Shown here is a 276-nucleotide RNA sequence from Maylandia zebra, a member of the family "Small Cajal body specific RNA 6". It scores 88 bits against the family's covariance model. From the family's description: U88 is small Cajal body specific RNA (scaRNA). scaRNAs are a novel class of small nuclear RNAs which localise to the Cajal bodies. U88 is found associated with both fibrillarin and Gar1p and co-localises with coilin in Cajal bodies. By type it is a small Cajal body RNA. Taxonomically the source falls in Maylandia zebra complex (Eukaryota, Teleostomi, Teleostei, Euacanthomorphacea). Rfam links the family to the GO terms RNA processing and nucleolus.

[Rfam]
RNA sequence: GGUCAGUGAUGUCAUGUAAAAGGUCUGAAGCUCAGCUCUUCCCCCUCGCGGCCACCAUUUUGGCUCCCAGCAGCCCGGCUCUCUGCUGCCAUCGUGCUCUAGUGGUGCGGCGAUGGUCUCGGCAGCUGCUGACACACAGGAUGUGACAUCACUGCGAGGUCUGUACAGAGCUCCUACAGCUUCUCUGUGAUGAUGUCAUCCAACAAAACCAAUCAGCAUGGAGCAUCAGGCCGAGGGGUGGGGUCUGAGCAGUGAUCUCACACCUGUUCUGAGGCC
Numbered sequence: 001g002g003u004c005a006g007u008g009a010u011g012u013c014a015u016g017u018a019a020a021a022g023g024u025c026u027g028a029a030g031c032u033c034a035g036c037u038c039u040u041c042c043c044c045c046u047c048g049c050g051g052c053c054a055c056c057a058u059u060u061u062g063g064c065u066c067c068c069a070g071c072a073g074c075c076c077g078g079c080u081c082u083c084u085g086c087u088g089c090c091a092u093c094g095u096g097c098u099c100u101a102g103u104g105g106u107g108c109g110g111c112g113a114u115g116g117u118c119u120c121g122g123c124a125g126c127u128g129c130u131g132a133c134a135c136a137c138a139g140g141a142u143g144u145g146a147c148a149u150c151a152c153u154g155c156g157a158g159g160u161c162u163g164u165a166c167a168g169a170g171c172u173c174c175u176a177c178a179g180c181u182u183c184u185c186u187g188u189g190a191u192g193a194u195g196u197c198a199u200c201c202a203a204c205a206a207a208a209c210c211a212a213u214c215a216g217c218a219u220g221g222a223g224c225a226u227c228a229g230g231c232c233g234a235g236g237g238g239u240g241g242g243g244u245c246u247g248a249g250c251a252g253u254g255a256u257c258u259c260a261c262a263c264c265u266g267u268u269c270u271g272a273g274g275c276c
Stems, first nucleotide, its partner, number of pairs: 001276004034258002037255002042238007064223004068131007088117008097107001139201003144198004156185004161179005